[Rfam]
Nucleotides: 097
Stems, first nucleotide, its partner, number of pairs: 001018006034059009044049001062093013
Number, partner (000 for none) and nucleotide at each position: 001018a002017g003016c004015g005014g006013c007000a008000c009000g010000g011000a012000u013006g014005c015004c016003g017002c018001u019000g020000g021000u022000u023000c024000c025000a026000u027000g028000c029000a030000g031000c032000a033000a034059c035058g036057a037056g038055u039054u040053u041052a042051g043000a044049c045000g046000u047000a048000a049044g050000g051042c052041u053040a054039a055038a056037c057036u058035c059034g060000c061000a062093g063092g064091u065090a066089a067088a068087a069086a070085u071084g072083u073082a074081c075000a076000u077000g078000g079000a080000u081074g082073u083072a084071c085070a086069u087068u088067u089066u090065u091064a092063c093062c094000g095000u096000g097000c

Description:
A member of the RNA family "TD-2 RNA" from Treponema vincentii, 97 nucleotides long. The family's consensus secondary structure is taken from published work. The family has 36 seed sequences and 310 matches in Rfam 15.1. The family is grouped with related families in Rfam's "TD (Treponema denticola) motifs".